[Rfam]
RNA sequence: GGCACUGCAUGCCCUCCAGCAGUUCUUCCCUGUUGGUGUGUUCAAAAGACAGUGCAAUAGAAAUUCACUAUCUGGCAUCAUUGGUUUCUUGGCUUUUGUGCAUGUUAACCCUGGCAUUUCUUAUGAUAGUUUU
Numbered sequence: 001g002g003c004a005c006u007g008c009a010u011g012c013c014c015u016c017c018a019g020c021a022g023u024u025c026u027u028c029c030c031u032g033u034u035g036g037u038g039u040g041u042u043c044a045a046a047a048g049a050c051a052g053u054g055c056a057a058u059a060g061a062a063a064u065u066c067a068c069u070a071u072c073u074g075g076c077a078u079c080a081u082u083g084g085u086u087u088c089u090u091g092g093c094u095u096u097u098g099u100g101c102a103u104g105u106u107a108a109c110c111c112u113g114g115c116a117u118u119u120c121u122u123a124u125g126a127u128a129g130u131u132u133u
Stems, first nucleotide, its partner, number of pairs: 002055006011041002014038001016036001018034005059121006065114003075101004

Notes
Rfam assigns this 133-nucleotide RNA sequence from Cricetulus griseus to the family "Small nucleolar RNA SNORA8". The family has 5 seed sequences and 1,490 matches in Rfam 15.1. Taxonomically the source falls in Cricetulus (Eukaryota, Bilateria, Mammalia, Myomorpha). A search with the family's covariance model found it, with a score of 82 bits. ACA8 is a member of the H/ACA class of snoRNA that guide the sites of modification of uridines to pseudouridines.